[Rfam]
RNA sequence: UAGGGCAAAGGAGAUGGCAUUCCUCCUGUAACAAACCGCCAUUGUGGCUAAUGAUGCCUACGUUACU
Numbered sequence: 001u002a003g004g005g006c007a008a009a010g011g012a013g014a015u016g017g018c019a020u021u022c023c024u025c026c027u028g029u030a031a032c033a034a035a036c037c038g039c040c041a042u043u044g045u046g047g048c049u050a051a052u053g054a055u056g057c058c059u060a061c062g063u064u065a066c067u
Base pairs, nucleotide, nucleotide: 010026011025012024013023016058017057018056019055020054021053038048039047040046
Shown here is a 67-nucleotide RNA sequence from Acinetobacter sp. ATCC 27244, a member of the family "Fluoride riboswitch aptamer (crcB RNA motif)". The base pairs follow the family's consensus structure, which is taken from published work. Rfam links the family to the GO terms response to fluoride and positive regulation of gene expression. Rfam's curators put it in the seed alignment.